[Rfam]
A member of the RNA family "FMN riboswitch aptamer (RFN element)" from Litorilinea aerophila, 187 nucleotides long. A reference for the family is Vitreschak et al. (2002), "Regulation of riboflavin biosynthesis and transport genes in bacteria by transcriptional and translational attenuation", Nucleic Acids Res. Taxonomically the source falls in Litorilinea (Bacteria, Chloroflexota, Caldilineae, Caldilineaceae). Its family is annotated with FMN binding in the Gene Ontology.
RNA sequence: GAGUACCUUCGGGGCAAGGUGAGGACCCGGCCCAGGGCUGGGGUCCAAUUCCUGACCGGCGGUGAUCUGGCCCAACAGGGUCAGUAAGCCCGCGAGCGGCCUGGCGUACCAGGCCGCAGGAGUGCGGUGCGCUGGGAAACCAGCAAAGCCGACGCCGACGGUAUAGUCCGGAUGGGAGAAGGUCUUG
Numbered sequence: 001g002a003g004u005a006c007c008u009u010c011g012g013g014g015c016a017a018g019g020u021g022a023g024g025a026c027c028c029g030g031c032c033c034a035g036g037g038c039u040g041g042g043g044u045c046c047a048a049u050u051c052c053u054g055a056c057c058g059g060c061g062g063u064g065a066u067c068u069g070g071c072c073c074a075a076c077a078g079g080g081u082c083a084g085u086a087a088g089c090c091c092g093c094g095a096g097c098g099g100c101c102u103g104g105c106g107u108a109c110c111a112g113g114c115c116g117c118a119g120g121a122g123u124g125c126g127g128u129g130c131g132c133u134g135g136g137a138a139a140c141c142a143g144c145a146a147a148g149c150c151g152a153c154g155c156c157g158a159c160g161g162u163a164u165a166g167u168c169c170g171g172a173u174g175g176g177a178g179a180a181g182g183u184c185u186u187g
Base pairs, nucleotide, nucleotide: 003185005183006182007181008180009179010178017053018052019051055167056166057157058156059093060092061091062090088155089154096117097116098115122153123152125151126150127149159170160169161168
Dot-bracket structure: ..(.((((((......(((...............................))).[[((((((.........................[[))))..(((................)))....((.(((.....................)))))]])).(((....]]))).......)))))).)..